[Rfam]
RNA sequence: UGUGUGUGUGUGUGUCUUUGUCUAAUUUGUUACAAAGCCUUACAGACAGGUGCACACAGUAAAUCCUCUUUUGCAACCCAGAACUCAUUGCUGAUAUGAGAUCUUGGUACAUGUAAGAAGGAAUGUG
Numbered sequence: 001u002g003u004g005u006g007u008g009u010g011u012g013u014g015u016c017u018u019u020g021u022c023u024a025a026u027u028u029g030u031u032a033c034a035a036a037g038c039c040u041u042a043c044a045g046a047c048a049g050g051u052g053c054a055c056a057c058a059g060u061a062a063a064u065c066c067u068c069u070u071u072u073g074c075a076a077c078c079c080a081g082a083a084c085u086c087a088u089u090g091c092u093g094a095u096a097u098g099a100g101a102u103c104u105u106g107g108u109a110c111a112u113g114u115a116a117g118a119a120g121g122a123a124u125g126u127g
Stems, first nucleotide, its partner, number of pairs: 001054005007048003011044001014039001016037006063124002066121002069118005079106002081103002084100005
Annotation: Shown here is a 127-nucleotide RNA sequence from Dipodomys ordii, a member of the family "Small nucleolar RNA SNORA40". The snoRNA ACA 40 belongs to the H/ACA family of snoRNAs and guides the pseudouridylation of 28S rRNA subunit at position U4565. NB This family has a high threshold value to exclude a large number of closely related sequences that do not appear to have conserved H and ACA boxes, and may be pseudogenes. Taxonomically the source falls in Dipodomys (Eukaryota, Bilateria, Deuterostomia, Vertebrata). The base pairs follow the family's consensus structure, which was predicted with RNAalifold. On this family, see Ofengand and Bakin, J Mol Biol 1997: "Mapping to nucleotide resolution of pseudouridine residues in large subunit ribosomal RNAs from representative eukaryotes, prokaryotes, archaebacteria, mitochondria and chloroplasts".